Shown here is a 97-nucleotide RNA from Pteropus vampyrus, a member of the family "mir-544 microRNA precursor family".
Gene Ontology terms of the family: RISC complex and miRNA-mediated post-transcriptional gene silencing.
The organism belongs to Pteropus, within Eukaryota.
The family has 16 seed sequences and 10,750 matches in Rfam 15.1.
[Rfam]
RNA sequence: AUCACCUCGGGAUCUUGUUAAAAUGCAGGUUCUGAUUCAGCAGGUCCGGGGUGGAGCCAAAGUUCUGCCUUUCUAACCAGCUCCCAAGUGAUGCUGG
Numbered sequence: 001a002u003c004a005c006c007u008c009g010g011g012a013u014c015u016u017g018u019u020a021a022a023a024u025g026c027a028g029g030u031u032c033u034g035a036u037u038c039a040g041c042a043g044g045u046c047c048g049g050g051g052u053g054g055a056g057c058c059a060a061a062g063u064u065c066u067g068c069c070u071u072u073c074u075a076a077c078c079a080g081c082u083c084c085c086a087a088g089u090g091a092u093g094c095u096g097g
Stems, first nucleotide, its partner, number of pairs: 003090003009084003014080002017077004021072003025068005031062001033060001